[Rfam]
RNA sequence: UCCUUUUUGUAGGAACAAUAUUUAUAUAAAAAAUUGAAUAUUGGAUUACAGAAUGUACU
Numbered sequence: 001u002c003c004u005u006u007u008u009g010u011a012g013g014a015a016c017a018a019u020a021u022u023u024a025u026a027u028a029a030a031a032a033a034u035u036g037a038a039u040a041u042u043g044g045a046u047u048a049c050a051g052a053a054u055g056u057a058c059u
Base pairs, nucleotide, nucleotide: 001057003055006052007051008050009049010048012047013046016043017042018041019040020039021038023037026034027033
Rfam assigns this 59-nucleotide RNA sequence from Monodelphis domestica to the family "mir-7360 microRNA precursor family".
The source organism's lineage runs through Eukaryota, Craniata, Gnathostomata, Didelphinae and Monodelphis.
The match comes from Rfam's covariance-model search (47 bits).
The family's consensus secondary structure was predicted with RNAalifold.